Shown here is a 78-nucleotide RNA sequence from Takifugu flavidus, a member of the family "Small nucleolar RNA SNORD83".
Its family is annotated with RNA processing and nucleolus in the Gene Ontology.
Taxonomically the source falls in Takifugu (Eukaryota, Craniata, Actinopterygii, Tetradontoidea).
Pairs were carried over by alignment from the consensus structure, which was predicted with PFOLD.

RNA sequence: GCCACGUGAUGAUGUGAUUGAUGUCAGUAGCCGUCUGUGCUGUGAUGACCUCUGAUCUAUCACCCUUUUCUGAUGGCU
Number, nucleotide and partner (000 for none) at each position: 001g077002c076003c075004a074005c000006g000007u000008g000009a000010u000011g000012a000013u000014g000015u000016g000017a000018u000019u000020g000021a000022u000023g000024u000025c000026a000027g000028u000029a000030g040031c039032c000033g000034u000035c000036u000037g000038u000039g031040c030041u000042g000043u000044g000045a000046u000047g000048a000049c000050c000051u000052c000053u000054g000055a000056u000057c000058u000059a000060u000061c000062a000063c000064c000065c000066u000067u000068u000069u000070c000071u000072g000073a000074u004075g003076g002077c001078u000